[Rfam]
RNA: M-box riboswitch aptamer (ykoK leader)
RNA sequence: UAAUUUCCUCGUUAGGUGAGGCUUCUACAUGGACCAUAUGCCACUGCCCGGAAAAGUCGAAAGACUGUAACGGGUCAACAGGUAUUACCGGCUUAAGGUUUUAUCUAAUGUGGCUGAGAUUAUUUCUCUAGCUAUGUACGUGCCAAAGCUCAAACGAGAGGGGAAAGGG
Numbered sequence: 001u002a003a004u005u006u007c008c009u010c011g012u013u014a015g016g017u018g019a020g021g022c023u024u025c026u027a028c029a030u031g032g033a034c035c036a037u038a039u040g041c042c043a044c045u046g047c048c049c050g051g052a053a054a055a056g057u058c059g060a061a062a063g064a065c066u067g068u069a070a071c072g073g074g075u076c077a078a079c080a081g082g083u084a085u086u087a088c089c090g091g092c093u094u095a096a097g098g099u100u101u102u103a104u105c106u107a108a109u110g111u112g113g114c115u116g117a118g119a120u121u122a123u124u125u126c127u128c129u130a131g132c133u134a135u136g137u138a139c140g141u142g143c144c145a146a147a148g149c150u151c152a153a154a155c156g157a158g159a160g161g162g163g164a165a166a167g168g169g
Stems, first nucleotide, its partner, number of pairs: 005165006011155002013096001015150003020144003025140001026138007040114005046075005055066004081105004087099003116128003